[Rfam]
Rfam assigns this 128-nucleotide RNA sequence from Galemys pyrenaicus to the family "Small nucleolar RNA SNORA65". The match comes from Rfam's covariance-model search (125 bits). Pairs were carried over by alignment from the consensus structure, which was predicted with RNAalifold. U65 belongs to the H/ACA class of snoRNAs which are thought to guide the sites of modification of uridines to pseudouridines. Rfam classes the family as an H/ACA-box small nucleolar RNA. Its family is annotated with RNA processing and nucleolus in the Gene Ontology. For this family Rfam cites "RNomics: an experimental approach that identifies 201 candidates for novel, small, non-messenger RNAs in mouse" (Huttenhofer et al., EMBO J, 2001).
RNA sequence: CCCGCCACUGCGCCUGGCCAGAUCUGUUGGCAGGAGCAAUCCAGUGGUGAGCUGAUAGUGAACCCCAGCUUAGGAAACAGGGUUGUUCUUCAUGUGGGUGACUCUGUGCCGAAAGCAUGGGAACACCU
Numbered sequence: 001c002c003c004g005c006c007a008c009u010g011c012g013c014c015u016g017g018c019c020a021g022a023u024c025u026g027u028u029g030g031c032a033g034g035a036g037c038a039a040u041c042c043a044g045u046g047g048u049g050a051g052c053u054g055a056u057a058g059u060g061a062a063c064c065c066c067a068g069c070u071u072a073g074g075a076a077a078c079a080g081g082g083u084u085g086u087u088c089u090u091c092a093u094g095u096g097g098g099u100g101a102c103u104c105u106g107u108g109c110c111g112a113a114a115g116c117a118u119g120g121g122a123a124c125a126c127c128u
Stems, first nucleotide, its partner, number of pairs: 005047006018034002021031001023030002063121003067118001068116004073110002078106006086098003